RNA sequence: AAUAGUUGUAAACAGAUAGCUCAUAUAAUCGUGAUAAUAGGGUUCACGAGUUUCUACCAGAUGCCGUAAAUAAUCUGACUAUGAGUACGACUAUAUUAAUU
Numbered sequence: 001a002a003u004a005g006u007u008g009u010a011a012a013c014a015g016a017u018a019g020c021u022c023a024u025a026u027a028a029u030c031g032u033g034a035u036a037a038u039a040g041g042g043u044u045c046a047c048g049a050g051u052u053u054c055u056a057c058c059a060g061a062u063g064c065c066g067u068a069a070a071u072a073a074u075c076u077g078a079c080u081a082u083g084a085g086u087a088c089g090a091c092u093a094u095a096u097u098a099a100u101u
Base pairs, nucleotide, nucleotide: 019086020085021084022083023082024081025080029049030048031047032046033045034044058077059076060075061074062073063071
The record is a 101-nucleotide RNA sequence from Clostridium uliginosum, which matches "Purine riboswitch aptamer" in Rfam. The family's consensus secondary structure is taken from published work.